Annotation: Rfam assigns this 180-nucleotide RNA from Eremothecium cymbalariae to the family "Small nucleolar RNA snR161". Its Rfam clan is "SNORA44 clan". For this family Rfam cites "Genome-wide searching for pseudouridylation guide snoRNAs: analysis of the Saccharomyces cerevisiae genome" (Schattner et al., Nucleic Acids Res, 2004).
[Rfam]
RNA sequence: GUAGCUAAAAAUAACCAGUAACAUUGGCUGUCUGUGCUUAUCAUCAACUUUCAGAUGGUCUCAUUAAGCUGGGAGAAUAUGUUUAUUAUGCUAUACGCAGAUAAGGAACAACUUAAGUUCUGUCGCUACUGAAGGUACAUAUGCUCUACUUCAGGUGACACUAAUGUUGUUCAUACAUUU
Numbered sequence: 001g002u003a004g005c006u007a008a009a010a011a012u013a014a015c016c017a018g019u020a021a022c023a024u025u026g027g028c029u030g031u032c033u034g035u036g037c038u039u040a041u042c043a044u045c046a047a048c049u050u051u052c053a054g055a056u057g058g059u060c061u062c063a064u065u066a067a068g069c070u071g072g073g074a075g076a077a078u079a080u081g082u083u084u085a086u087u088a089u090g091c092u093a094u095a096c097g098c099a100g101a102u103a104a105g106g107a108a109c110a111a112c113u114u115a116a117g118u119u120c121u122g123u124c125g126c127u128a129c130u131g132a133a134g135g136u137a138c139a140u141a142u143g144c145u146c147u148a149c150u151u152c153a154g155g156u157g158a159c160a161c162u163a164a165u166g167u168u169g170u171u172c173a174u175a176c177a178u179u180u
Stems, first nucleotide, its partner, number of pairs: 015072005027059008036050001106172004111167002122159006
It is annotated as an H/ACA-box small nucleolar RNA. Gene Ontology terms of the family: nucleolus and RNA processing.